This 151-nucleotide sequence from Candidatus Tokpelaia hoelldobleri belongs to the Rfam family "speF leader". It is annotated as a cis-regulatory leader. NCBI's taxonomy places the organism under Bacteria, Pseudomonadati, Pseudomonadota, Alphaproteobacteria, Candidatus Tokpelaia. It scores 69 bits against the family's covariance model. Gene Ontology term of the family: regulation of gene expression. This family is a putative regulatory RNA structure that is found upstream of the speF gene encoding ornithine decarboxylase in Agrobacterium tumefaciens and other alpha-proteobacteria.
[Rfam]
RNA sequence: UCCGGCCUGAUAAAGAGGUUGGGAUACUGUAGAGGCACACCCUCCUUGCCUUCCGUGCGGAAACGGUUCUCCAAUUCCAAUCAAAAGGCAGACAAAGCGGAACAAUGCGGGUAUCCGCGCUGUUCUUUAACAGCAGUCUGAUUGCCAUGGG
Numbered sequence: 001u002c003c004g005g006c007c008u009g010a011u012a013a014a015g016a017g018g019u020u021g022g023g024a025u026a027c028u029g030u031a032g033a034g035g036c037a038c039a040c041c042c043u044c045c046u047u048g049c050c051u052u053c054c055g056u057g058c059g060g061a062a063a064c065g066g067u068u069c070u071c072c073a074a075u076u077c078c079a080a081u082c083a084a085a086a087g088g089c090a091g092a093c094a095a096a097g098c099g100g101a102a103c104a105a106u107g108c109g110g111g112u113a114u115c116c117g118c119g120c121u122g123u124u125c126u127u128u129a130a131c132a133g134c135a136g137u138c139u140g141a142u143u144g145c146c147a148u149g150g151g
Base pairs, nucleotide, nucleotide: 001023002022003021004020005019006018007017008016034050035049036048037047057131081092082091100114102112103111